[Rfam]
RNA sequence: GUCGUUCCGUUUUUUCGUUCCUUGCUUCCGCAGAUUGGCGACUGGUCUAUAGUCGGAGGCUGAUUAACCCGUAAGGAGCAGUAAUG
Numbered sequence: 001g002u003c004g005u006u007c008c009g010u011u012u013u014u015u016c017g018u019u020c021c022u023u024g025c026u027u028c029c030g031c032a033g034a035u036u037g038g039c040g041a042c043u044g045g046u047c048u049a050u051a052g053u054c055g056g057a058g059g060c061u062g063a064u065u066a067a068c069c070c071g072u073a074a075g076g077a078g079c080a081g082u083a084a085u086g
Base pairs, nucleotide, nucleotide: 017079018078019077020076021075022074023073024060025059026058027057028056029055032048033047034046
The record is an 86-nucleotide sequence from Gallibacterium salpingitidis, which matches "RpsF leader" in Rfam. Lineage of the source: Bacteria > Pseudomonadota > Pasteurellales > Pasteurellaceae > Gallibacterium. By type it is a cis-regulatory leader. Pairs were carried over by alignment from the consensus structure. On this family, see Babina et al., RNA 2015: "An S6:S18 complex inhibits translation of E. coli rpsF". Conserved and widely distributed to many bacterial species RNA structure. It precedes operon containing rpsF, which encodes ribosomal protein S6. The motif also precedes operon containing rpsR, which encodes ribosomal protein S18.